The family of this 89-nucleotide sequence from Kineococcus radiotolerans is "SAM riboswitch aptamer (S box leader)". Taxonomically the source falls in Kineococcus radiotolerans (Bacteria, Bacillati, Kineosporiaceae, Kineococcus).

RNA sequence: UCGCCAUCCAGAGCGGCCGAGAGACCCGGCUCGUCGACGCCGCAGCAACCUCCCCCCGGGGCAGGUGCUCCCGCCGGGACCGAUGGGAA
Numbered sequence: 001u002c003g004c005c006a007u008c009c010a011g012a013g014c015g016g017c018c019g020a021g022a023g024a025c026c027c028g029g030c031u032c033g034u035c036g037a038c039g040c041c042g043c044a045g046c047a048a049c050c051u052c053c054c055c056c057c058g059g060g061g062c063a064g065g066u067g068c069u070c071c072c073g074c075c076g077g078g079a080c081c082g083a084u085g086g087g088a089a
Stems, first nucleotide, its partner, number of pairs: 001089001004086005013043005021032003026077004044069004049065002051061004073081001